[Rfam]
Background: The record is a 325-nucleotide RNA sequence from Cinclus mexicanus, which matches "7SK RNA" in Rfam. The literature on the family includes a 2002 paper in Curr Biol by Blencowe, "Transcription: surprising role for an elusive small nuclear RNA". Its Rfam clan is "7SK clan".
RNA sequence: GGAUGUGAGGGCAGUCUGGAUGCAACAUCCAUCAUCCCACUGAUGACCAGGCUGAUUGAGCUGACCUGGCUGGCUUGGUGGGUAUCCACUUCCUUCUCAAUGCUCCGUGUCCAUCCCUACCAAAGAUGCACACUGGUUGAAGAGGGUGAUCUUUCCCAUGGAGAUGGUGCUGUUCAUCAGUCAAGAGUAUAUGGUAGCCCUGCCCCCUGCUAGAACCACCCUCCAAACAAGUUCAAGGUUUAUGGCUAUUUAUGCUGGAAAUGCAGUUUCUCUAAUGAUUUUGCAGUAAUCUGCCAGAGAUCUAAAGAAAAUAUUUUCUGAGUGG
Numbered sequence: 001g002g003a004u005g006u007g008a009g010g011g012c013a014g015u016c017u018g019g020a021u022g023c024a025a026c027a028u029c030c031a032u033c034a035u036c037c038c039a040c041u042g043a044u045g046a047c048c049a050g051g052c053u054g055a056u057u058g059a060g061c062u063g064a065c066c067u068g069g070c071u072g073g074c075u076u077g078g079u080g081g082g083u084a085u086c087c088a089c090u091u092c093c094u095u096c097u098c099a100a101u102g103c104u105c106c107g108u109g110u111c112c113a114u115c116c117c118u119a120c121c122a123a124a125g126a127u128g129c130a131c132a133c134u135g136g137u138u139g140a141a142g143a144g145g146g147u148g149a150u151c152u153u154u155c156c157c158a159u160g161g162a163g164a165u166g167g168u169g170c171u172g173u174u175c176a177u178c179a180g181u182c183a184a185g186a187g188u189a190u191a192u193g194g195u196a197g198c199c200c201u202g203c204c205c206c207c208u209g210c211u212a213g214a215a216c217c218a219c220c221c222u223c224c225a226a227a228c229a230a231g232u233u234c235a236a237g238g239u240u241u242a243u244g245g246c247u248a249u250u251u252a253u254g255c256u257g258g259a260a261a262u263g264c265a266g267u268u269u270c271u272c273u274a275a276u277g278a279u280u281u282u283g284c285a286g287u288a289a290u291c292u293g294c295c296a297g298a299g300a301u302c303u304a305a306a307g308a309a310a311a312u313a314u315u316u317u318c319u320g321a322g323u324g325g
Stems, first nucleotide, its partner, number of pairs: 001106003006099006013091002018089001025085001027083007035073002037069003042066001044064001047060001114167002117163002120136002123134001125133001137158001139157001144155003196268003202262001206258002209255002218249001223245003291325003295320005300314002303311001
Rfam classes the family as a non-coding RNA gene. The family has 45 seed sequences and 49,373 matches in Rfam 15.1. 7SK was discovered as an abundant small nuclear RNA in the mid-70s but a possible function has only recently been suggested. Two independent studies have found that 7SK RNA binds the CDK9/cyclin T complex (known as elongation factor P-TEFb). P-TEFb activates transcription by phosphorylating the C-terminal domain of RNA polymerase II. This process is negatively regulated by the 7SK RNP. The secondary structure of 7SK RNA shown here was proposed by Wasserman and Steitz on the basis of chemical modification and enzymatic cleavage experiments. This family contains a number of annotated pseudogenes and 7SK derived repeats. The threshold is artificially high to minimise the pseudogene count. NCBI's taxonomy places the organism under Eukaryota, Deuterostomia, Sarcopterygii, Sauropsida, Cinclus.